Description: The record is a 139-nucleotide RNA sequence from Vicugna pacos, which matches "U4 spliceosomal RNA" in Rfam. Its Rfam clan is "U4 clan". NCBI's taxonomy places the organism under Eukaryota, Deuterostomia, Tetrapoda, Laurasiatheria, Vicugna. Pairs were carried over by alignment from the consensus structure, which is taken from published work. Rfam 15.1 lists 32,178 matches to the family in 2,547 species. From the family's description: U4 small nuclear RNA (U4 snRNA) is a component of the major U2-dependent spliceosome.
RNA sequence: AGCUUUUUGCAGUGGCAGUAUGGUAGCCAAUGAUGUUUAUCCGAGGUGCAAUUAUUGCUAAUUGAAAACUUUCCCAAUACCCACCAUGGUGCCUUGAAAUAUAGUCAGUGUUGGCAGUUUUUGACAGUCUCUACGGAGA
Numbered sequence: 001a002g003c004u005u006u007u008u009g010c011a012g013u014g015g016c017a018g019u020a021u022g023g024u025a026g027c028c029a030a031u032g033a034u035g036u037u038u039a040u041c042c043g044a045g046g047u048g049c050a051a052u053u054a055u056u057g058c059u060a061a062u063u064g065a066a067a068a069c070u071u072u073c074c075c076a077a078u079a080c081c082c083a084c085c086a087u088g089g090u091g092c093c094u095u096g097a098a099a100u101a102u103a104g105u106c107a108g109u110g111u112u113g114g115c116a117g118u119u120u121u122u123g124a125c126a127g128u129c130u131c132u133a134c135g136g137a138g139a
Stems, first nucleotide, its partner, number of pairs: 020052002023049002026047003035041001084114002086111003090107002093104002128139004